[Rfam]
RNA sequence: GGCCCGCUUGCCGAACUGGCGCUUGAGGCGUUCGUUUCCCGACACGUCGGGAAUAGGCGGCGGGCAUCAC
Numbered sequence: 001g002g003c004c005c006g007c008u009u010g011c012c013g014a015a016c017u018g019g020c021g022c023u024u025g026a027g028g029c030g031u032u033c034g035u036u037u038c039c040c041g042a043c044a045c046g047u048c049g050g051g052a053a054u055a056g057g058c059g060g061c062g063g064g065c066a067u068c069a070c
Stems, first nucleotide, its partner, number of pairs: 002065007010058003017034003020030004036053005
A member of the RNA family "DUF3800-IX RNA", 70 nucleotides long. Rfam describes the family as follows. Actinobacteria, Firmicutes (1 example), Nitrospirae, Proteobacteria, Verrucomicrobia (1 example). Rfam classes the family as a small RNA. The sequence is in the family's curated seed alignment.